[Rfam]
RNA sequence: GAGCUAUGAAGAUCUUAAAGGAAUCAGAUUCCACUGAAGACAUAAGAUCCAACUCUGAGCUCGCUAAAAAG
Numbered sequence: 001g002a003g004c005u006a007u008g009a010a011g012a013u014c015u016u017a018a019a020g021g022a023a024u025c026a027g028a029u030u031c032c033a034c035u036g037a038a039g040a041c042a043u044a045a046g047a048u049c050c051a052a053c054u055c056u057g058a059g060c061u062c063g064c065u066a067a068a069a070a071g
Stems, first nucleotide, its partner, number of pairs: 001062004
Small nucleolar RNA SNORD19: a 71-nucleotide RNA sequence from Thryothorus ludovicianus. The source organism's lineage runs through Eukaryota, Craniata, Tetrapoda, Saurischia and Thryothorus. Rfam classes the family as a C/D-box small nucleolar RNA. A reference for the family is Huttenhofer et al. (2001), "RNomics: an experimental approach that identifies 201 candidates for novel, small, non-messenger RNAs in mouse", EMBO J. The family has 22 seed sequences and 1,431 matches in Rfam 15.1.